[Rfam]
RNA sequence: AGUAGUAACAGCAAAGUGGGGUGAGAAUCCCCACCGCCGAAGGGGCAAGGUUUCCACAGCAACGGUCGUCAGCUGUGGGUUAGCCGGUCCUAACCCCCGGGGUAAUUCCCUUGGGGGGAAAGGGAAGCGGGUUAAUAUUCCCGCGCCACCCGGAUACGUGCGGCAACGCAAGGCCAGCUCCUGACGCUUCGGGGUAGGCCAACCACCCCCGUCGGGGUGGUCAAGCGUAUAAGUCCGGGGAGUGCCGUAAUGGCGAGAACCGGAUGAAAGCGCGAUGAGCCCUCCGUUAGGAGGGUUUGGCCGAGCCCUGGAGCCCGUGAAAAGGGAGCUGGCAAGGAUUCCGGGUGACCGUACCCAGAACCGACACAGGUGCCCCUAGGCGAGUAUCCUAAGGCGUGU
Numbered sequence: 001a002g003u004a005g006u007a008a009c010a011g012c013a014a015a016g017u018g019g020g021g022u023g024a025g026a027a028u029c030c031c032c033a034c035c036g037c038c039g040a041a042g043g044g045g046c047a048a049g050g051u052u053u054c055c056a057c058a059g060c061a062a063c064g065g066u067c068g069u070c071a072g073c074u075g076u077g078g079g080u081u082a083g084c085c086g087g088u089c090c091u092a093a094c095c096c097c098c099g100g101g102g103u104a105a106u107u108c109c110c111u112u113g114g115g116g117g118g119a120a121a122g123g124g125a126a127g128c129g130g131g132u133u134a135a136u137a138u139u140c141c142c143g144c145g146c147c148a149c150c151c152g153g154a155u156a157c158g159u160g161c162g163g164c165a166a167c168g169c170a171a172g173g174c175c176a177g178c179u180c181c182u183g184a185c186g187c188u189u190c191g192g193g194g195u196a197g198g199c200c201a202a203c204c205a206c207c208c209c210c211g212u213c214g215g216g217g218u219g220g221u222c223a224a225g226c227g228u229a230u231a232a233g234u235c236c237g238g239g240g241a242g243u244g245c246c247g248u249a250a251u252g253g254c255g256a257g258a259a260c261c262g263g264a265u266g267a268a269a270g271c272g273c274g275a276u277g278a279g280c281c282c283u284c285c286g287u288u289a290g291g292a293g294g295g296u297u298u299g300g301c302c303g304a305g306c307c308c309u310g311g312a313g314c315c316c317g318u319g320a321a322a323a324g325g326g327a328g329c330u331g332g333c334a335a336g337g338a339u340u341c342c343g344g345g346u347g348a349c350c351g352u353a354c355c356c357a358g359a360a361c362c363g364a365c366a367c368a369g370g371u372g373c374c375c376c377u378a379g380g381c382g383a384g385u386a387u388c389c390u391a392a393g394g395c396g397u398g399u
Stems, first nucleotide, its partner, number of pairs: 016034006035396004043375004049355002054078006064070001085351003089123002094117006100110003127144005147347008180326003186314009197302005202221006225273004234264005244254003285290001361370002377391004
The record is a 399-nucleotide part of an RNA from Methanotorris igneus, which matches "Archaeal large subunit ribosomal RNA" in Rfam. Lineage of the source: Archaea > Methanobacteriota > Methanococci > Methanotorris > Methanotorris igneus. The family has 91 seed sequences and 2,955 matches in Rfam 15.1.